[Rfam]
RNA: glmS glucosamine-6-phosphate activated ribozyme aptamer
Organism: Sphaerobacter thermophilus
RNA sequence: CGUCGUUGAGUAGCGCCCGGACUCGCCGGAGGAGGCGGCGAGUCGACGAGGUGGAGGCUUCUCGAAAUAUUCGGCGGAUGGCCUCCCGGCUGGCACGGUCGUGAGGGUCAGGGCAAAACCGCUGAGUGAUCGGCGGCACAAAGACUGGCCCGGUGCGCGUA
Numbered sequence: 001c002g003u004c005g006u007u008g009a010g011u012a013g014c015g016c017c018c019g020g021a022c023u024c025g026c027c028g029g030a031g032g033a034g035g036c037g038g039c040g041a042g043u044c045g046a047c048g049a050g051g052u053g054g055a056g057g058c059u060u061c062u063c064g065a066a067a068u069a070u071u072c073g074g075c076g077g078a079u080g081g082c083c084u085c086c087c088g089g090c091u092g093g094c095a096c097g098g099u100c101g102u103g104a105g106g107g108u109c110a111g112g113g114c115a116a117a118a119c120c121g122c123u124g125a126g127u128g129a130u131c132g133g134c135g136g137c138a139c140a141a142a143g144a145c146u147g148g149c150c151c152g153g154u155g156c157g158c159g160u161a
Stems, first nucleotide, its partner, number of pairs: 020044009053086005062074004087101006105151007119136007